This 102-nucleotide sequence from Microbacterium aerolatum belongs to the Rfam family "mraW RNA". The family's RNA type in Rfam is cis-regulatory element.
RNA sequence: CUUCUGACCUCGGCUGUGAUGCCCCGCCGCUCCCGCCCCGACACACUUCCCCGGUGCCGGGUCGAGAUGCGGAGGGGGAUCAGGGCCAAGGUCACCGGAAAA
Numbered sequence: 001c002u003u004c005u006g007a008c009c010u011c012g013g014c015u016g017u018g019a020u021g022c023c024c025c026g027c028c029g030c031u032c033c034c035g036c037c038c039c040g041a042c043a044c045a046c047u048u049c050c051c052c053g054g055u056g057c058c059g060g061g062u063c064g065a066g067a068u069g070c071g072g073a074g075g076g077g078g079a080u081c082a083g084g085g086c087c088a089a090g091g092u093c094a095c096c097g098g099a100a101a102a
Stems, first nucleotide, its partner, number of pairs: 010089001012087004018081002022077004027072004031067002034064002037061004042056003